[Rfam]
RNA sequence: AAAGCAGGCUGCAAUUGCAGUGCUCCCUGCUGUGGGGGUGCUGCCAUUUUCCUGCUGAGAGCAACACUGUUAACACUGUGGUUUCACCCACACUGUGGUGAAAGCAUUUGUUUUUAACAUGGACAAGU
Numbered sequence: 001a002a003a004g005c006a007g008g009c010u011g012c013a014a015u016u017g018c019a020g021u022g023c024u025c026c027c028u029g030c031u032g033u034g035g036g037g038g039u040g041c042u043g044c045c046a047u048u049u050u051c052c053u054g055c056u057g058a059g060a061g062c063a064a065c066a067c068u069g070u071u072a073a074c075a076c077u078g079u080g081g082u083u084u085c086a087c088c089c090a091c092a093c094u095g096u097g098g099u100g101a102a103a104g105c106a107u108u109u110g111u112u113u114u115u116a117a118c119a120u121g122g123a124c125a126a127g128u
Stems, first nucleotide, its partner, number of pairs: 003056006018043009067122001068119006075112001079106002082103007
Rfam assigns this 128-nucleotide RNA sequence from Picathartes gymnocephalus to the family "Small nucleolar RNA SNORA69".
It scores 74 bits against the family's covariance model.
Pairs were carried over by alignment from the consensus structure, which was predicted with PFOLD.
From the family's description: U69 is a member of the H/ACA class of small nucleolar RNAs (snoRNAs) which act as guides in the the modification of uridines to pseudouridines.
The family has 16 seed sequences and 808 matches in Rfam 15.1.
It is annotated as an H/ACA-box small nucleolar RNA.